[Rfam]
RNA sequence: CUUGAACACAGCCACAGCCGUCGUGAGGCGGUGUCGGAAAGCCACGGGUCUCUACAGGAGAGAUAGCCGGGCCGCCUGC
Numbered sequence: 001c002u003u004g005a006a007c008a009c010a011g012c013c014a015c016a017g018c019c020g021u022c023g024u025g026a027g028g029c030g031g032u033g034u035c036g037g038a039a040a041g042c043c044a045c046g047g048g049u050c051u052c053u054a055c056a057g058g059a060g061a062g063a064u065a066g067c068c069g070g071g072c073c074g075c076c077u078g079c
Stems, first nucleotide, its partner, number of pairs: 012037002017032006041072003045069003048064006
This 79-nucleotide RNA from Candidatus Electrothrix aarhusensis belongs to the Rfam family "c-di-GMP-I riboswitch aptamer". Its family is annotated with cyclic-di-GMP binding in the Gene Ontology. The source organism's lineage runs through Bacteria, Pseudomonadati, Desulfobulbales, Desulfobulbaceae and Candidatus Electrothrix. Rfam describes the family as follows. GEMM was predicted in a large-scale screen for bacterial structured RNA regulatory elements.